[Rfam]
RNA: Qrr RNA
Organism: Vibrio cholerae
RNA sequence: UGACCCGCAAGGGUCACCUAGCCAACUGACGUUGUUAGUGAAUAAUCAAUGUUCACAAAUAACAGCCAAUAGACUCAUUCUAUUGGCUAUUUUUUU
Dot-bracket structure: ((((((....))))))...............((((..(((((((.....)))))))..))))...((((((((.....))))))))..........
Numbered sequence: 001u002g003a004c005c006c007g008c009a010a011g012g013g014u015c016a017c018c019u020a021g022c023c024a025a026c027u028g029a030c031g032u033u034g035u036u037a038g039u040g041a042a043u044a045a046u047c048a049a050u051g052u053u054c055a056c057a058a059a060u061a062a063c064a065g066c067c068a069a070u071a072g073a074c075u076c077a078u079u080c081u082a083u084u085g086g087c088u089a090u091u092u093u094u095u096u
Stems, first nucleotide, its partner, number of pairs: 001016006032062004038056007066086008